[Rfam]
RNA sequence: UCUCUAUUUCUCACACUCUCUCACCGGUCAGAAAGGCGAGAGAGUGUAUGAAAUGAAGAGA
Numbered sequence: 001u002c003u004c005u006a007u008u009u010c011u012c013a014c015a016c017u018c019u020c021u022c023a024c025c026g027g028u029c030a031g032a033a034a035g036g037c038g039a040g041a042g043a044g045u046g047u048a049u050g051a052a053a054u055g056a057a058g059a060g061a
Stems, first nucleotide, its partner, number of pairs: 001059003005055003010050001013047005019041004
RNA: mir-8364 microRNA precursor family
Organism: Pristionchus pacificus